[Rfam]
RNA sequence: UUGCUAAAGCUGGUAAAAUGGAACCAAAUCAACUGUUGAAUGGAUUUGGUCCCCUUCAACCAGCUGUAGCUG
Numbered sequence: 001u002u003g004c005u006a007a008a009g010c011u012g013g014u015a016a017a018a019u020g021g022a023a024c025c026a027a028a029u030c031a032a033c034u035g036u037u038g039a040a041u042g043g044a045u046u047u048g049g050u051c052c053c054c055u056u057c058a059a060c061c062a063g064c065u066g067u068a069g070c071u072g
Stems, first nucleotide, its partner, number of pairs: 003070004008065007017056002020052003024049007
A member of the RNA family "mir-133 microRNA precursor family" from Sus scrofa, 72 nucleotides long. mir-133 was first experimentally characterised in mouse and homologues have since been discovered in several other species. The mature sequence is excised from the 3' arm of the hairpin. NCBI's taxonomy places the organism under Eukaryota, Bilateria, Sarcopterygii, Eutheria, Sus. The literature on the family includes a 2002 paper in Curr Biol by Lagos-Quintana et al., "Identification of tissue-specific microRNAs from mouse". The base pairs follow the family's consensus structure, which was predicted with PFOLD. The family has 127 seed sequences and 3,763 matches in Rfam 15.1.